[Rfam]
RNA sequence: UGCGACCCCCAUAAAAGGAGUAGUCCCCCAACCCGGAGCAAUUUUCCCAUAUUCCGAAUUC
Numbered sequence: 001u002g003c004g005a006c007c008c009c010c011a012u013a014a015a016a017g018g019a020g021u022a023g024u025c026c027c028c029c030a031a032c033c034c035g036g037a038g039c040a041a042u043u044u045u046c047c048c049a050u051a052u053u054c055c056g057a058a059u060u061c
Base pairs, nucleotide, nucleotide: 017045018044019043020042021041023039024038026036027035
A member of the RNA family "Plastid-psbN 5UTR RNA" from Zea mays, 61 nucleotides long. Plastid psbN is a non-coding RNA (ncRNA) recognised in plastids. It was reported as a conserved 11 stem-loop in the prime untranslated region (5UTR) of psbN genes. It has been reported that the motif is retained in a subset of mature transcripts in barley, which can suggests a possible role in transcript alternative 5 prime processing. A search with the family's covariance model found it, with a score of 69 bits. It is annotated as a cis-regulatory element. NCBI's taxonomy places the organism under Eukaryota, Viridiplantae, Poales, Panicoideae, Zea.